[Rfam]
RNA: Streptomyces RNA 6106
Organism: Streptomyces sp. NRRL WC-3618
RNA sequence: ACGCCGUCGCGCGGCGUCCGUGCUCCCGAUCCAUGCGGGGCAAGUGAGCGGGGGUGGUGCCGUGUCGGCGCAGCACCACCCCCGCGAC
Numbered sequence: 001a002c003g004c005c006g007u008c009g010c011g012c013g014g015c016g017u018c019c020g021u022g023c024u025c026c027c028g029a030u031c032c033a034u035g036c037g038g039g040g041c042a043a044g045u046g047a048g049c050g051g052g053g054g055u056g057g058u059g060c061c062g063u064g065u066c067g068g069c070g071c072a073g074c075a076c077c078a079c080c081c082c083c084g085c086g087a088c
Stems, first nucleotide, its partner, number of pairs: 001017007019046003024040005048085013062071003
Dot-bracket structure: (((((((...))))))).(((..(((((.......)))))...))).(((((((((((((.(((....))).)))))))))))))...